[Rfam]
RNA: CRISPR RNA direct repeat element
Organism: Roseospirillum parvum
RNA sequence: GUAUCUCCCCGGGGCCCAAAAGCCCCGGCCUCAUUGAAGC
Numbered sequence: 001g002u003a004u005c006u007c008c009c010c011g012g013g014g015c016c017c018a019a020a021a022g023c024c025c026c027g028g029c030c031u032c033a034u035u036g037a038a039g040c
Stems, first nucleotide, its partner, number of pairs: 009028007